[Rfam]
RNA sequence: CAGAAGAUAGGUGUCCCUUUCUAAUCUGGCUUGUGGGACUCUAGAGGGAGUCAGUCUGCAGCAGUAAAUGCUGAGUUCCUCUGACUAGUGUCAGCAUUUUGAUGUUGGCUUUAGAUUUCCCAGAUAUCA
Numbered sequence: 001c002a003g004a005a006g007a008u009a010g011g012u013g014u015c016c017c018u019u020u021c022u023a024a025u026c027u028g029g030c031u032u033g034u035g036g037g038a039c040u041c042u043a044g045a046g047g048g049a050g051u052c053a054g055u056c057u058g059c060a061g062c063a064g065u066a067a068a069u070g071c072u073g074a075g076u077u078c079c080u081c082u083g084a085c086u087a088g089u090g091u092c093a094g095c096a097u098u099u100u101g102a103u104g105u106u107g108g109c110u111u112u113a114g115a116u117u118u119c120c121c122a123g124a125u126a127u128c129a
Stems, first nucleotide, its partner, number of pairs: 003059001005057004020045004025038003069122002073118003077115002083109001085107001089104006
Small nucleolar RNA SNORA56: a 129-nucleotide sequence from Myotis davidii. Rfam 15.1 lists 153 matches to the family in 125 species. Rfam links the family to the GO terms nucleolus and RNA processing. It is annotated as an H/ACA-box small nucleolar RNA. The match comes from Rfam's covariance-model search (102 bits). The base pairs follow the family's consensus structure.